This 575-nucleotide part of an RNA from an uncultured marine eukaryote belongs to the Rfam family "Eukaryotic small subunit ribosomal RNA". The sequence is in the family's curated seed alignment.
RNA sequence: AACCUGGUUGAUCCUGCCAGUAGUCAUAUGCUUGUCUCAAAGAUUAAGCCAUGCAUGUAUAAGUAUAAAUUUGUUUAUGGUGAAACUGCGAAUGGCUCAUUACAACGGUUAUAGUUUACUUGAGAUAUAACUACUGGAUACCCGUAGUAACUCUAGAGCUAAUACAUUUAUCGGGACAUCAGUCUCGUGUUUAUUAGAUUUCACCGAACAGAUUUUCUGUUGGGGAGUCAUGAUAAAUUAACGAAUCGUGUAUCGAUGCUUCAAACAAGUUUCCGUCCCAUCAGCCAUGAUGGUUGCGUAUUGGACUACCAUGGCAGUUACGGGUAACGAGGAAUUGGGGUUCGAUUUCGGAGAGGGAGUCUGAGAAACGGCUACCACAUCUACGGAAGGCAGCAGGCGCGCAAAUUACCCAAUGUAAAUAUGUAUGAGGUAGUGACAAGAAAUAUCAAAGUAACCUUCGGGCUACUAUUGAAAUGGGUAAAAUUUAAACAAUUUUACGAGGAGCAACUGGAGGGCAAGUCUGGUGCCAGCAGCCGCGGCAACACCAGCUCCAGUAGCGUAUAUUAAAGUUGUUG
Numbered sequence: 001a002a003c004c005u006g007g008u009u010g011a012u013c014c015u016g017c018c019a020g021u022a023g024u025c026a027u028a029u030g031c032u033u034g035u036c037u038c039a040a041a042g043a044u045u046a047a048g049c050c051a052u053g054c055a056u057g058u059a060u061a062a063g064u065a066u067a068a069a070u071u072u073g074u075u076u077a078u079g080g081u082g083a084a085a086c087u088g089c090g091a092a093u094g095g096c097u098c099a100u101u102a103c104a105a106c107g108g109u110u111a112u113a114g115u116u117u118a119c120u121u122g123a124g125a126u127a128u129a130a131c132u133a134c135u136g137g138a139u140a141c142c143c144g145u146a147g148u149a150a151c152u153c154u155a156g157a158g159c160u161a162a163u164a165c166a167u168u169u170a171u172c173g174g175g176a177c178a179u180c181a182g183u184c185u186c187g188u189g190u191u192u193a194u195u196a197g198a199u200u201u202c203a204c205c206g207a208a209c210a211g212a213u214u215u216u217c218u219g220u221u222g223g224g225g226a227g228u229c230a231u232g233a234u235a236a237a238u239u240a241a242c243g244a245a246u247c248g249u250g251u252a253u254c255g256a257u258g259c260u261u262c263a264a265a266c267a268a269g270u271u272u273c274c275g276u277c278c279c280a281u282c283a284g285c286c287a288u289g290a291u292g293g294u295u296g297c298g299u300a301u302u303g304g305a306c307u308a309c310c311a312u313g314g315c316a317g318u319u320a321c322g323g324g325u326a327a328c329g330a331g332g333a334a335u336u337g338g339g340g341u342u343c344g345a346u347u348u349c350g351g352a353g354a355g356g357g358a359g360u361c362u363g364a365g366a367a368a369c370g371g372c373u374a375c376c377a378c379a380u381c382u383a384c385g386g387a388a389g390g391c392a393g394c395a396g397g398c399g400c401g402c403a404a405a406u407u408a409c410c411c412a413a414u415g416u417a418a419a420u421a422u423g424u425a426u427g428a429g430g431u432a433g434u435g436a437c438a439a440g441a442a443a444u445a446u447c448a449a450a451g452u453a454a455c456c457u458u459c460g461g462g463c464u465a466c467u468a469u470u471g472a473a474a475u476g477g478g479u480a481a482a483a484u485u486u487a488a489a490c491a492a493u494u495u496u497a498c499g500a501g502g503a504g505c506a507a508c509u510g511g512a513g514g515g516c517a518a519g520u521c522u523g524g525u526g527c528c529a530g531c532a533g534c535c536g537c538g539g540c541a542a543c544a545c546c547a548g549c550u551c552c553a554g555u556a557g558c559g560u561a562u563a564u565u566a567a568a569g570u571u572g573u574u575g
Stems, first nucleotide, its partner, number of pairs: 004020005022565003026562007035441003041434001042400001048398003052395003057089002062087003069081002096353003105276004111270002115268002121263004133168001135166002142158001145155003175186002178183001191236006204224002207221001210218003246256003277324003284315003290312005296306001328350004332343004355376002358373003378389001380387002406432001408431003414427004447471003450467004455462002478498002480495001482494003508554006521548004530537002
Annotation
The family is grouped with related families in Rfam's "SSU clan".